[Rfam]
RNA sequence: GGACAUACUUUAAUCCCCCUAACCAAGACCACGGGGUUAUAAUGUCUUCUUAUCCACUAGUGAAGGGAUUAGUGGAAAUACCGUAUCGC
Numbered sequence: 001g002g003a004c005a006u007a008c009u010u011u012a013a014u015c016c017c018c019c020u021a022a023c024c025a026a027g028a029c030c031a032c033g034g035g036g037u038u039a040u041a042a043u044g045u046c047u048u049c050u051u052a053u054c055c056a057c058u059a060g061u062g063a064a065g066g067g068a069u070u071a072g073u074g075g076a077a078a079u080a081c082c083g084u085a086u087c088g089c
Stems, first nucleotide, its partner, number of pairs: 013037005026047004054075007
The record is an 89-nucleotide sequence, which matches "PhotoRC-II RNA" in Rfam. It is one of the family's seed sequences. The family's consensus secondary structure is taken from published work.